[Rfam]
RNA sequence: GGAUCGGGAGGCCGCCUUCGGGACGGUGGCCAUGAAUUGAUCCGGGCGUGUUAUCUCGAUUGUGCAAGAUGCCGGGGCCCGACGGUGUCUUUG
Number, nucleotide and partner (000 for none) at each position: 001g043002g042003a041004u040005c039006g000007g000008g000009a000010g031011g030012c029013c028014g027015c026016c025017u000018u000019c000020g000021g000022g000023a000024c000025g016026g015027u014028g013029g012030c011031c010032a000033u000034g000035a000036a000037u000038u000039g005040a004041u003042c002043c001044g000045g000046g000047c000048g000049u000050g000051u000052u000053a000054u000055c000056u000057c000058g000059a000060u000061u000062g000063u000064g000065c093066a092067a091068g090069a000070u087071g086072c085073c084074g083075g000076g000077g000078c000079c000080c000081g000082a000083c074084g073085g072086u071087g070088u000089c000090u068091u067092u066093g065
The family of this 93-nucleotide sequence from Rhodobacteraceae bacterium KLH11 is "Rhodo-rpoB RNA". It is one of the family's seed sequences.